[Rfam]
The family of this 132-nucleotide RNA from Microtus ochrogaster is "Small nucleolar RNA SNORA15". Rfam 15.1 lists 974 matches to the family in 624 species. On this family, see Huttenhofer et al., EMBO J 2001: "RNomics: an experimental approach that identifies 201 candidates for novel, small, non-messenger RNAs in mouse". Pairs were carried over by alignment from the consensus structure, which was predicted with RNAfold. NCBI's taxonomy places the organism under Eukaryota, Deuterostomia, Sarcopterygii, Rodentia, Microtus.
RNA sequence: GCAUGGGUGAAUAUUGUGUUCUUUAGUCAGUAAUUUACACAGCCAGACACCAUGCAAAAGUAACGUCUUCCUUUAAAAUGAUUGGUAUGCUGUUUUUUUUAUGGUAUAUCAUUAUUAAAAGUGGGUACAAGU
Numbered sequence: 001g002c003a004u005g006g007g008u009g010a011a012u013a014u015u016g017u018g019u020u021c022u023u024u025a026g027u028c029a030g031u032a033a034u035u036u037a038c039a040c041a042g043c044c045a046g047a048c049a050c051c052a053u054g055c056a057a058a059a060g061u062a063a064c065g066u067c068u069u070c071c072u073u074u075a076a077a078a079u080g081a082u083u084g085g086u087a088u089g090c091u092g093u094u095u096u097u098u099u100u101a102u103g104g105u106a107u108a109u110c111a112u113u114a115u116u117a118a119a120a121g122u123g124g125g126u127a128c129a130a131g132u
Stems, first nucleotide, its partner, number of pairs: 001055006014042006068125003071121004075116002083111010